A member of the RNA family "mir-31 microRNA precursor family" from Mizuhopecten yessoensis, 84 nucleotides long.
Clan: mir-31 microRNA precursor family.
The family's consensus secondary structure was predicted with RNAalifold.
The family has 75 seed sequences and 1,181 matches in Rfam 15.1.
It scores 58 bits against the family's covariance model.
The source organism's lineage runs through Eukaryota, Metazoa, Lophotrochozoa, Pteriomorphia and Mizuhopecten.
RNA sequence: AGGUUCAGAACAGGCAAGAUGUUGGCAUAGCUGAGUUGUAAAAUAAGACUUCAGCUGUGCCACAUGCUGCCAUAUUUGGGCCUA
Numbered sequence: 001a002g003g004u005u006c007a008g009a010a011c012a013g014g015c016a017a018g019a020u021g022u023u024g025g026c027a028u029a030g031c032u033g034a035g036u037u038g039u040a041a042a043a044u045a046a047g048a049c050u051u052c053a054g055c056u057g058u059g060c061c062a063c064a065u066g067c068u069g070c071c072a073u074a075u076u077u078g079g080g081c082c083u084a
Base pairs, nucleotide, nucleotide: 005079006078007077008076009075013071014070015069016068019065020064021063023062024061025060026059027058028057029056030055031054